[Rfam]
RNA sequence: AAGCGAAGGGAAGGCAAGAUGUCGGCAUAGCUGAGUGUGUUUGAAAUUCCGGCUGUGUCACAUCGGGCCAGCUCUCGCUUCC
Number, nucleotide and partner (000 for none) at each position: 001a000002a000003g000004c000005g000006a000007a075008g074009g073010g072011a000012a000013g069014g068015c067016a000017a000018g064019a063020u062021g061022u000023c000024g059025g058026c057027a056028u055029a054030g053031c052032u000033g000034a000035g000036u000037g000038u000039g000040u000041u000042u000043g000044a000045a000046a000047u000048u000049c000050c000051g000052g031053c030054u029055g028056u027057g026058u025059c024060a000061c021062a020063u019064c018065g000066g000067g015068c014069c013070a000071g000072c010073u009074c008075u007076c000077g000078c000079u000080u000081c000082c000
RNA: mir-31 microRNA precursor family